[Rfam]
Glycine riboswitch aptamer: an 80-nucleotide sequence from Sporosarcina sp. Marseille-Q4063. A search with the family's covariance model found it, with a score of 42 bits. Taxonomically the source falls in Sporosarcina (Bacteria, Bacilli, Caryophanales, Caryophanaceae). Pairs were carried over by alignment from the consensus structure.
RNA sequence: AUCUCUGGAGAGUGUCAGCAUCGACUGACCACCAACGAGGAAAGCCGCAAGGUCAAACUUUCAGGUACAUGGACAGAGGU
Numbered sequence: 001a002u003c004u005c006u007g008g009a010g011a012g013u014g015u016c017a018g019c020a021u022c023g024a025c026u027g028a029c030c031a032c033c034a035a036c037g038a039g040g041a042a043a044g045c046c047g048c049a050a051g052g053u054c055a056a057a058c059u060u061u062c063a064g065g066u067a068c069a070u071g072g073a074c075a076g077a078g079g080u
Stems, first nucleotide, its partner, number of pairs: 001080007014029004031066003035061001038060003044053002